[Rfam]
RNA sequence: UCCUGGCACUCUUCACAACGGAUCGUCCGGCACGUACCUGCCGGUGAAGGGACACACCU
Numbered sequence: 001u002c003c004u005g006g007c008a009c010u011c012u013u014c015a016c017a018a019c020g021g022a023u024c025g026u027c028c029g030g031c032a033c034g035u036a037c038c039u040g041c042c043g044g045u046g047a048a049g050g051g052a053c054a055c056a057c058c059u
Base pairs, nucleotide, nucleotide: 009051010050011049012048013047014046015045027044028043029042030041031040032039
Dot-bracket structure: ........(((((((...........((((((......)))))))))))))........
A member of the RNA family "msiK RNA" from Flavimobilis marinus, 59 nucleotides long.
The family's RNA type in Rfam is cis-regulatory element.
Lineage of the source: Bacteria > Bacillati > Actinomycetes > Micrococcales > Flavimobilis.
Rfam 15.1 lists 1,374 matches to the family in 1,364 species.
A search with the family's covariance model found it, with a score of 67 bits.